Rfam assigns this 54-nucleotide RNA to the family "Glutamine riboswitch aptamer (glnA leader)". For this family Rfam cites "Bacterial aptamers that selectively bind glutamine" (Ames and Breaker, RNA Biol, 2011). Pairs were carried over by alignment from the consensus structure, which is taken from published work.
RNA sequence: AUCGUUCAUCUUCUACUAGAAGACGGAAGUAAGCGAAAGCCGAAGGAACGCGUG
Numbered sequence: 001a002u003c004g005u006u007c008a009u010c011u012u013c014u015a016c017u018a019g020a021a022g023a024c025g026g027a028a029g030u031a032a033g034c035g036a037a038a039g040c041c042g043a044a045g046g047a048a049c050g051c052g053u054g
Stems, first nucleotide, its partner, number of pairs: 003050005009023005026051001033040002